[Rfam]
RNA sequence: UAGCCGGCCUGUAAAUAUGCACGGGCCCGGCUGGAUGUUUCAAGGCAUAUUAAUUUGAGGAAAAGACUAUGGCACUGAGUGCUGCUCAAAAAGCUGAAAUCGUAAAAGAUUUUCAACAAGCGGAA
Dot-bracket structure: .((((((...................)))))).....................(((..((..............)))))..............................................
The record is a 125-nucleotide RNA from Pseudomaricurvus sp. HS19, which matches "Ribosomal S15 leader" in Rfam. Gene Ontology term of the family: regulation of translation, ncRNA-mediated. The match comes from Rfam's covariance-model search (48 bits). The E. coli Ribosomal S15 gene 5' UTR can form two alternative structures. One that is a series of three hairpins, The other includes a pseudoknot. This structure causes translational regulation of the S15 protein. The alignment of this family contains only the final two hairpins which are conserved in other species, and also includes the complete region that forms the alternate structures. On this family, see Benard et al., Biochimie 1996: "Pseudoknot and translational control in the expression of the S15 ribosomal protein". Lineage of the source: Bacteria > Pseudomonadati > Gammaproteobacteria > Cellvibrionaceae > Pseudomaricurvus. The family's RNA type in Rfam is cis-regulatory leader. Pairs were carried over by alignment from the consensus structure, which is taken from published work.